Description
A member of the RNA family "Bacillaceae-1 RNA" from Salibacterium salarium, 67 nucleotides long. The match comes from Rfam's covariance-model search (71 bits). The organism belongs to Salibacterium, within Bacteria.

RNA sequence: AAAGAAAGAUGUUCGACUAAGAUCGUCACCUCCUGUGACAACGUCUAACUGACCCACAUCGUGUGGG
Number, nucleotide and partner (000 for none) at each position: 001a000002a000003a000004g000005a000006a000007a000008g000009a000010u000011g049012u048013u047014c000015g045016a044017c043018u000019a000020a000021g000022a000023u000024c000025g039026u038027c037028a036029c035030c000031u000032c000033c000034u000035g029036u028037g027038a026039c025040a000041a000042c000043g017044u016045c015046u000047a013048a012049c011050u000051g000052a000053c067054c066055c065056a064057c063058a000059u000060c000061g000062u000063g057064u056065g055066g054067g053